[Rfam]
RNA sequence: AAAGGAGCAAUAACGUCCUUUUGAUAAAACAAGAGGGAAGCUAUUGCUUAUUUUUUU
Numbered sequence: 001a002a003a004g005g006a007g008c009a010a011u012a013a014c015g016u017c018c019u020u021u022u023g024a025u026a027a028a029a030c031a032a033g034a035g036g037g038a039a040g041c042u043a044u045u046g047c048u049u050a051u052u053u054u055u056u057u
Base pairs, nucleotide, nucleotide: 001053002052003051005049006048007047008046009045010044011043012042014040018035019034020033021032022031023030

This 57-nucleotide RNA from Mikania micrantha belongs to the Rfam family "Plastid-psbA-3 3UTR RNA".
Plastid psbA-3 is a non-coding RNA (ncRNA) present in plastids. It was identified in inverted repeat sequences in the 3 prime untranslate region (3UTR) of photosystem II quinone-binding protein (psbA).
A search with the family's covariance model found it, with a score of 49 bits.
Pairs were carried over by alignment from the consensus structure, which was predicted with LocARNA.
The source organism's lineage runs through Eukaryota, eudicotyledons, asterids, Asteraceae and Mikania.
The literature on the family includes a 2023 paper in Plant Commun by Richter et al., "Retrograde signaling in plants: A critical review focusing on the GUN pathway and beyond".